[Rfam]
RNA sequence: UGCCACAGUGAUGACACUUAUUUGCUACUCUUGACCAAGAGAGUGAUGAGCACUUUUACCACCAUUAAGUUUUCUGAGGCA
Numbered sequence: 001u002g003c004c005a006c007a008g009u010g011a012u013g014a015c016a017c018u019u020a021u022u023u024g025c026u027a028c029u030c031u032u033g034a035c036c037a038a039g040a041g042a043g044u045g046a047u048g049a050g051c052a053c054u055u056u057u058a059c060c061a062c063c064a065u066u067a068a069g070u071u072u073u074c075u076g077a078g079g080c081a
Stems, first nucleotide, its partner, number of pairs: 001081004